[Rfam]
RNA sequence: GAUCUCUGAAGACUAAUGCCGCAAUGUGUCGGACGGGGGUUCGAUUCCCCCCGGCUCCACCAGAGUGCAAAUGCGUGUCGUUUGCAGCCUGAUGGGGCCGACCGGUUUCGACGGCGCAUGAACGUUGAAGUCGACGAUUCGAGAGGCGACUGCCGUAAGCAGAGCAUCAAGUAAUCGCCAACCAAGGCCGUUACCUGGAGCAAGCCUAG
Numbered sequence: 001g002a003u004c005u006c007u008g009a010a011g012a013c014u015a016a017u018g019c020c021g022c023a024a025u026g027u028g029u030c031g032g033a034c035g036g037g038g039g040u041u042c043g044a045u046u047c048c049c050c051c052c053g054g055c056u057c058c059a060c061c062a063g064a065g066u067g068c069a070a071a072u073g074c075g076u077g078u079c080g081u082u083u084g085c086a087g088c089c090u091g092a093u094g095g096g097g098c099c100g101a102c103c104g105g106u107u108u109c110g111a112c113g114g115c116g117c118a119u120g121a122a123c124g125u126u127g128a129a130g131u132c133g134a135c136g137a138u139u140c141g142a143g144a145g146g147c148g149a150c151u152g153c154c155g156u157a158a159g160c161a162g163a164g165c166a167u168c169a170a171g172u173a174a175u176c177g178c179c180a181a182c183c184a185a186g187g188c189c190g191u192u193a194c195c196u197g198g199a200g201c202a203a204g205c206c207u208a209g
Stems, first nucleotide, its partner, number of pairs: 001139004014128001016126001025118003029114003035051005052100007140155002

permuted transfer-messenger RNA: a 209-nucleotide RNA from Ramlibacter tataouinensis.
Taxonomically the source falls in Ramlibacter tataouinensis (Bacteria, Pseudomonadota, Betaproteobacteria, Comamonadaceae).